[Rfam]
RNA sequence: UAAAAUGAUAGAGGAGCAAUAAUUAAUAAUAGCUUUACAGAGUUUGUGUAAACAAAGAAGUAAAGUGAAAGGGGUUAUUGCCGAAAUCUUAGAGUUAGCACAAGCUUUAAGAUUGGGACUAUGAUUAAUAGUCAUAGUACUGUCACUAGAUUGUAGUGAAGAGCUAUCUUAUAU
Numbered sequence: 001u002a003a004a005a006u007g008a009u010a011g012a013g014g015a016g017c018a019a020u021a022a023u024u025a026a027u028a029a030u031a032g033c034u035u036u037a038c039a040g041a042g043u044u045u046g047u048g049u050a051a052a053c054a055a056a057g058a059a060g061u062a063a064a065g066u067g068a069a070a071g072g073g074g075u076u077a078u079u080g081c082c083g084a085a086a087u088c089u090u091a092g093a094g095u096u097a098g099c100a101c102a103a104g105c106u107u108u109a110a111g112a113u114u115g116g117g118a119c120u121a122u123g124a125u126u127a128a129u130a131g132u133c134a135u136a137g138u139a140c141u142g143u144c145a146c147u148a149g150a151u152u153g154u155a156g157u158g159a160a161g162a163g164c165u166a167u168c169u170u171a172u173a174u
Stems, first nucleotide, its partner, number of pairs: 007168005016081009032066007085114012115141002118138008143159006